A member of the RNA family "SAM riboswitch aptamer (S box leader)" from Lentibacillus kapialis, 107 nucleotides long. The base pairs follow the family's consensus structure, which is taken from published work. It scores 76 bits against the family's covariance model. Its family is annotated with regulation of gene expression in the Gene Ontology. The organism belongs to Lentibacillus, within Bacteria.
RNA sequence: UUCUUAUCGCGAGAGGUGGAGGGACCUGACCCUGAGAAACCUCGGCAACCAGUAUGGUGAUACCCGGUGCCAAAUUCAGAGGAAUGAAGCUAUUCCGAAGAUGAGAA
Numbered sequence: 001u002u003c004u005u006a007u008c009g010c011g012a013g014a015g016g017u018g019g020a021g022g023g024a025c026c027u028g029a030c031c032c033u034g035a036g037a038a039a040c041c042u043c044g045g046c047a048a049c050c051a052g053u054a055u056g057g058u059g060a061u062a063c064c065c066g067g068u069g070c071c072a073a074a075u076u077c078a079g080a081g082g083a084a085u086g087a088a089g090c091u092a093u094u095c096c097g098a099a100g101a102u103g104a105g106a107a
Stems, first nucleotide, its partner, number of pairs: 001107008013043005021032003026079004044071004049067002075099001081096005
Dot-bracket structure: ((((((((....(((((...(((..[[[[)))......)))))((((.((...............))))))...(]]]].(((((......)))))..)))))))))